[Rfam]
RNA sequence: UUGAACUCUGAAGAGUUGCCGGGAUUCGUCGUCCGGCACACCGCAGGAGCAAGCGCAGCCGACACGGUGGCGUGAAUCUCUCAGGUACCAAACAGAGGGGGCGUG
Numbered sequence: 001u002u003g004a005a006c007u008c009u010g011a012a013g014a015g016u017u018g019c020c021g022g023g024a025u026u027c028g029u030c031g032u033c034c035g036g037c038a039c040a041c042c043g044c045a046g047g048a049g050c051a052a053g054c055g056c057a058g059c060c061g062a063c064a065c066g067g068u069g070g071c072g073u074g075a076a077u078c079u080c081u082c083a084g085g086u087a088c089c090a091a092a093c094a095g096a097g098g099g100g101g102c103g104u105g
Stems, first nucleotide, its partner, number of pairs: 006097005017038006040086003043082001047080003053073004
About this RNA
A member of the RNA family "Glycine riboswitch aptamer" from Curvibacter sp. PAE-UM, 105 nucleotides long. The organism belongs to Curvibacter, within Bacteria.